[Rfam]
This 428-nucleotide RNA sequence from Castor canadensis belongs to the Rfam family "Vertebrate telomerase RNA". Gene Ontology terms of the family: telomerase activity, telomerase catalytic core complex and telomere maintenance via telomerase. The family's consensus secondary structure is taken from published work. Its Rfam clan is "Telomerase clan". The family's RNA type in Rfam is non-coding RNA gene. Rfam describes the family as follows. Telomerase is a ribonucleoprotein reverse transcriptase that synthesises telomeric DNA. Telomerase RNAs differ greatly in sequence and structure between vertebrates, ciliates and yeasts, but they share a 5' pseudoknot structure close to the template sequence. Vertebrate telomerase RNAs have a 3' H/ACA snoRNA-like domain. NCBI's taxonomy places the organism under Eukaryota, Mammalia, Glires, Castorimorpha, Castor. On this family, see Chen et al., Cell 2000: "Secondary structure of vertebrate telomerase RNA". A search with the family's covariance model found it, with a score of 302 bits.
RNA sequence: AGGGCCGGGAGCGGUGGCUGCCAUGCUUCUCCUAACCCUAAGAAAUAAGGGCGGUGGGCCGGAGCUUUUGUACCCCCGCGCGCUGUUUUUCUCGCUGACUUUCAGCGGGCGGAAAAGCCGGGGCCUACCGCAAUUCACCAUCCAGUCUGCCUCAAACAAAAAAUGUCAGCGACUGGCGCGUCCACCUCUCCCGGGACCUGCGGUGACCGCCCGCCUAGUCCCCGCUCCCCGCCGAGAGGCCGCGGUCGGCCGGGGCUUCUCCUGAGGCCCCAAUGCCGCCGCGAAGAGUUGGGCUCUGUCAGCCGCGGGGCUCUCGGGGGCCAGGCGAGGCCCAGCGAUGCGGCCGCAGGGACAGGAACGGAGCUGGUCCCCACGCGGUGCGCUUCCCUGAGCCGUGGGAAGCGCAUCGGGACCCGGUUCUCACAUGC
Number, nucleotide and partner (000 for none) at each position: 001a000002g000003g000004g000005c194006c193007g192008g191009g190010a189011g188012c000013g186014g185015u184016g183017g182018c000019u178020g177021c176022c175023a174024u000025g000026c000027u000028u000029c000030u000031c000032c000033u000034a000035a000036c000037c000038c000039u000040a000041a000042g000043a000044a000045a000046u000047a000048a000049g000050g000051g000052c000053g000054g000055u000056g000057g000058g000059c000060c000061g000062g000063a000064g118065c117066u116067u115068u114069u000070g000071u000072a000073c000074c000075c000076c000077c111078g110079c109080g000081c107082g106083c105084u104085g103086u000087u000088u000089u000090u000091c000092u000093c000094g170095c169096u168097g167098a166099c165100u163101u162102u161103c085104a084105g083106c082107g081108g000109g079110c078111g077112g000113a000114a068115a067116a066117g065118c064119c000120g000121g000122g000123g000124c000125c000126u000127a000128c000129c000130g000131c000132a000133a000134u000135u000136c000137a000138c000139c000140a000141u000142c000143c000144a000145g000146u000147c000148u000149g000150c000151c000152u000153c000154a000155a000156a000157c000158a000159a000160a000161a102162a101163a100164u000165g099166u098167c097168a096169g095170c094171g000172a000173c000174u023175g022176g021177c020178g019179c000180g000181u000182c017183c016184a015185c014186c013187u000188c011189u010190c009191c008192c007193g006194g005195g000196a000197c350198c349199u348200g347201c346202g345203g344204u000205g000206a000207c000208c000209g331210c330211c329212c327213g326214c325215c324216u323217a000218g321219u320220c319221c318222c317223c316224g315225c000226u000227c000228c309229c308230c307231g306232c305233c000234g000235a000236g000237a000238g000239g000240c000241c283242g282243c281244g280245g279246u000247c278248g277249g276250c275251c000252g271253g270254g269255g000256c000257u000258u000259c000260u000261c000262c000263u000264g000265a000266g000267g000268c000269c254270c253271c252272a000273a000274u000275g250276c249277c248278g247279c245280c244281g243282c242283g241284a000285a297286g296287a295288g294289u000290u000291g000292g000293g000294c288295u287296c286297u285298g000299u000300c000301a000302g000303c000304c000305g232306c231307g230308g229309g228310g000311c000312u000313c000314u000315c224316g223317g222318g221319g220320g219321c218322c000323a216324g215325g214326c213327g212328a000329g211330g210331c209332c000333c000334a000335g000336c000337g000338a000339u000340g000341c000342g000343g000344c203345c202346g201347c200348a199349g198350g197351g000352a000353c000354a000355g000356g000357a000358a000359c000360g000361g420362a419363g418364c417365u000366g414367g413368u412369c411370c410371c409372c000373a000374c000375g000376c000377g000378g407379u406380g405381c404382g403383c000384u000385u400386c399387c398388c397389u000390g000391a000392g000393c000394c000395g000396u000397g388398g387399g386400a385401a000402g000403c382404g381405c380406a379407u378408c000409g371410g370411g369412a368413c367414c366415c000416g000417g364418u363419u362420c361421u000422c000423a000424c000425a000426u000427g000428c000